RNA sequence: GGCACUAUUUUUUAAACCUAUUGAUGGAAAUUUUUACCACAUUAGGUUACGCUGUAGUGCCAAAGAAUCCCUUAGCUCCUGUCCUUGCAUAGCUGACGGUCCAUUCGGCUCGUGCUUUGGUGGUUGUGUUAAGGUACAUAA
Numbered sequence: 001g002g003c004a005c006u007a008u009u010u011u012u013u014a015a016a017c018c019u020a021u022u023g024a025u026g027g028a029a030a031u032u033u034u035u036a037c038c039a040c041a042u043u044a045g046g047u048u049a050c051g052c053u054g055u056a057g058u059g060c061c062a063a064a065g066a067a068u069c070c071c072u073u074a075g076c077u078c079c080u081g082u083c084c085u086u087g088c089a090u091a092g093c094u095g096a097c098g099g100u101c102c103a104u105u106c107g108g109c110u111c112g113u114g115c116u117u118u119g120g121u122g123g124u125u126g127u128g129u130u131a132a133g134g135u136a137c138a139u140a141a
Base pairs, nucleotide, nucleotide: 002060003059004058005057006056007055008054015048016047017046018045025039026038027037068136070134071133072132074130075129076128078126083123084122087115088114089113091110092109093108095106096105
Rfam assigns this 141-nucleotide RNA sequence from Monodelphis domestica to the family "Small nucleolar RNA SNORA46".
The family has 22 seed sequences and 582 matches in Rfam 15.1.
The family's RNA type in Rfam is H/ACA-box small nucleolar RNA.
ACA46 is a member of the H/ACA class of snoRNA that guide the sites of modification of uridines to pseudouridines.